[Rfam]
RNA sequence: AGGGUAACGAUGCGGCCCCUAAAGUCCGCGUCACUUAAAAAGGUAAAAAGGUAAAAAUUAUG
Numbered sequence: 001a002g003g004g005u006a007a008c009g010a011u012g013c014g015g016c017c018c019c020u021a022a023a024g025u026c027c028g029c030g031u032c033a034c035u036u037a038a039a040a041a042g043g044u045a046a047a048a049a050g051g052u053a054a055a056a057a058u059u060a061u062g
Stems, first nucleotide, its partner, number of pairs: 001020004009032007
RNA: DUF2815 RNA